RNA sequence: GGCGAGGUAGCUCAGCAGGUUAGAGCGCGUGAUUCAUAAUCACGAGGUCGGGCGUUCAAGUCGCCCUCUCGCUA
Numbered sequence: 001g002g003c004g005a006g007g008u009a010g011c012u013c014a015g016c017a018g019g020u021u022a023g024a025g026c027g028c029g030u031g032a033u034u035c036a037u038a039a040u041c042a043c044g045a046g047g048u049c050g051g052g053c054g055u056u057c058a059a060g061u062c063g064c065c066c067u068c069u070c071g072c073u074a
Stems, first nucleotide, its partner, number of pairs: 001073007010026004028044005050066005
RNA: tRNA